[Rfam]
Background:
COG3860 RNA: a 52-nucleotide sequence from Siculibacillus lacustris.
RNA sequence: CGGUCGGCAGUUCACCGAGGCGUCGCUCCCCGUAGGGGGUCUAGACCUGCCA
Numbered sequence: 001c002g003g004u005c006g007g008c009a010g011u012u013c014a015c016c017g018a019g020g021c022g023u024c025g026c027u028c029c030c031c032g033u034a035g036g037g038g039g040u041c042u043a044g045a046c047c048u049g050c051c052a
Base pairs, nucleotide, nucleotide: 001017002016003015004014028039029038030037031036
Annotation
The match comes from Rfam's covariance-model search (59 bits). Pairs were carried over by alignment from the consensus structure, which is taken from published work. By type it is a cis-regulatory element. Lineage of the source: Bacteria > Pseudomonadati > Alphaproteobacteria > Hyphomicrobiales > Siculibacillus.